[Rfam]
RNA sequence: AAACUUUGGUUCCCAUAGCUUUAAAAUGCGGAGGAUCCAAAAAUGGGGUGAAGCAUUACUAUAAGUAGUGCAGGUUACACCUUUUCCUAACCCGUCAGCUAACUUCGCAGGCAAAGGAGGAUUU
Numbered sequence: 001a002a003a004c005u006u007u008g009g010u011u012c013c014c015a016u017a018g019c020u021u022u023a024a025a026a027u028g029c030g031g032a033g034g035a036u037c038c039a040a041a042a043a044u045g046g047g048g049u050g051a052a053g054c055a056u057u058a059c060u061a062u063a064a065g066u067a068g069u070g071c072a073g074g075u076u077a078c079a080c081c082u083u084u085u086c087c088u089a090a091c092c093c094g095u096c097a098g099c100u101a102a103c104u105u106c107g108c109a110g111g112c113a114a115a116g117g118a119g120g121a122u123u124u
Base pairs, nucleotide, nucleotide: 005026006025028108029107030106031105032104033103038045039044046093047092048091054070055069056068057067073087074086
Dot-bracket structure: ....((..................)).((((((....((....))(((.....((((.........))))..((...........))...))).........))))))................